The family of this 151-nucleotide sequence from Paenibacillus phyllosphaerae is "FMN riboswitch aptamer (RFN element)". A search with the family's covariance model found it, with a score of 115 bits.
RNA sequence: AUCGAUCUUCGGGGUAGGGUGAGAUUCCCAACCGGCGGUGAACCUCUUACGCAAGAGGAAGCCCGCGACUCCCUUUCCUGCUCGGCAGGCAGGGGACUGAUUUGGUGAAAUUCCAAAGCCGACGGUAUAGUCCGGAUGGUAGAAGAUCAGA
Numbered sequence: 001a002u003c004g005a006u007c008u009u010c011g012g013g014g015u016a017g018g019g020u021g022a023g024a025u026u027c028c029c030a031a032c033c034g035g036c037g038g039u040g041a042a043c044c045u046c047u048u049a050c051g052c053a054a055g056a057g058g059a060a061g062c063c064c065g066c067g068a069c070u071c072c073c074u075u076u077c078c079u080g081c082u083c084g085g086c087a088g089g090c091a092g093g094g095g096a097c098u099g100a101u102u103u104g105g106u107g108a109a110a111u112u113c114c115a116a117a118g119c120c121g122a123c124g125g126u127a128u129a130g131u132c133c134g135g136a137u138g139g140u141a142g143a144a145g146a147u148c149a150g151a
Base pairs, nucleotide, nucleotide: 004148005147006146007145008144009143010142017029018028019027031131032130033121034120035066036065037064038063061119062118070096071095072094073093074092101117102116103115104114105113123134124133125132